Rfam assigns this 45-nucleotide RNA from a Pirellulaceae bacterium to the family "Acido-Lenti-1 RNA".

[Rfam]
RNA sequence: CCCAGGCCUUCGGCCUGGGCUACCGUACAGCGCCCCUGCGGGGCU
Numbered sequence: 001c002c003c004a005g006g007c008c009u010u011c012g013g014c015c016u017g018g019g020c021u022a023c024c025g026u027a028c029a030g031c032g033c034c035c036c037u038g039c040g041g042g043g044c045u
Base pairs, nucleotide, nucleotide: 001019002018003017004016005015006014007013008012032044033043034042035041036040
The base pairs follow the family's consensus structure, which is taken from published work. A search with the family's covariance model found it, with a score of 42 bits. The family's RNA type in Rfam is small RNA.